A member of the RNA family "MIR2912 microRNA precursor family" from Populus trichocarpa, 156 nucleotides long. Pairs were carried over by alignment from the consensus structure, which was predicted with RNAalifold.
[Rfam]
Nucleotides: 156
Stems, first nucleotide, its partner, number of pairs: 003154002006151002008147002011145010021134004027129003035123003041119003045115001048112004054105002060099001062098002068092001072088003
Number, partner (000 for none) and nucleotide at each position: 001000u002000u003154u004153a005000a006151a007150a008147c009146u010000c011145g012144a013143g014142a015141u016140a017139u018138g019137g020136g021134c022133u023132a024131a025000a026000c027129a028128c029127u030000g031000a032000a033000c034000a035123g036122u037121g038000u039000a040000u041119g042118g043117g044000c045115u046000g047000c048112a049111g050110g051109a052000c053000a054105g055104a056000u057000u058000c059000u060099g061000a062098c063097u064000u065000c066000u067000u068092u069000g070000u071000u072088g073087u074086u075000g076000c077000u078000a079000c080000a081000a082000u083000u084000u085000g086074a087073a088072u089000u090000u091000g092068a093000a094000a095000a096000u097063g098062g099060u100000c101000u102000u103000u104055u105054u106000g107000a108000a109051u110050c111049u112048u113000g114000a115045a116000c117043u118042u119041u120000a121037c122036a123035u124000g125000a126000a127029a128028g129027u130000a131024u132023u133022a134021g135000g136020c137019u138018u139017a140016u141015g142014u143013u144012u145011u146009a147008g148000c149000u150007u151006u152000c153004u154003a155000u156000c
The match comes from Rfam's covariance-model search (118 bits). Taxonomically the source falls in Populus (Eukaryota, Streptophytina, Spermatophyta, Mesangiospermae). Rfam links the family to the GO terms miRNA-mediated post-transcriptional gene silencing and RISC complex.